[Rfam]
RNA: L4-Archaeoglobi ribosomal protein leades
RNA sequence: CUGAAGGCCGCGUCCGGGUCAAUUCCCCGCUGCGGGAACACCCGAUCUCCCUGCUCGUCCCUUCCGGAAUGGAGGUCGAGCGGGGGGAGCGCGUCACCAUCAG
Dot-bracket structure: ((((....(((((.((((....(((((......)))))..)))).(((((((((((.....................))))))))))))))))......))))